Rfam assigns this 79-nucleotide RNA from Halopseudomonas salegens to the family "SAH (S-adenosyl-L-homocysteine) riboswitch aptamer". Rfam links the family to the GO terms S-adenosylhomocysteine metabolic process and regulation of gene expression. A search with the family's covariance model found it, with a score of 54 bits. The source organism's lineage runs through Bacteria, Pseudomonadati, Gammaproteobacteria, Pseudomonadaceae and Halopseudomonas.
[Rfam]
Nucleotides: 079
Stems, first nucleotide, its partner, number of pairs: 002047001005044004021034005
Number, partner (000 for none) and nucleotide at each position: 001000c002047c003000g004000a005044c006043c007042g008041a009000g010000g011000g012000g013000c014000g015000c016000u017000g018000c019000a020000g021034c022033g023032a024031c025030a026000g027000g028000u029000u030025u031024g032023u033022c034021g035000u036000c037000a038000g039000g040000c041008u042007c043006g044005g045000c046000g047002g048000g049000c050000a051000g052000u053000g054000u055000a056000c057000a058000g059000a060000a061000a062000g063000a064000a065000c066000c067000g068000c069000g070000c071000c072000c073000a074000u075000u076000c077000g078000c079000u